[Rfam]
RNA sequence: CGCCGGUUCUUUCUACUCGGAUCGUCCGGCACGUUCCUGCCGGUGGAAAGGAUGGCCC
Numbered sequence: 001c002g003c004c005g006g007u008u009c010u011u012u013c014u015a016c017u018c019g020g021a022u023c024g025u026c027c028g029g030c031a032c033g034u035u036c037c038u039g040c041c042g043g044u045g046g047a048a049a050g051g052a053u054g055g056c057c058c
Stems, first nucleotide, its partner, number of pairs: 009050007026043006
Dot-bracket structure: ........(((((((..........((((((......)))))))))))))........
This 58-nucleotide sequence from Natronosporangium hydrolyticum belongs to the Rfam family "msiK RNA". Rfam 15.1 lists 1,374 matches to the family in 1,364 species. The base pairs follow the family's consensus structure, which is taken from published work.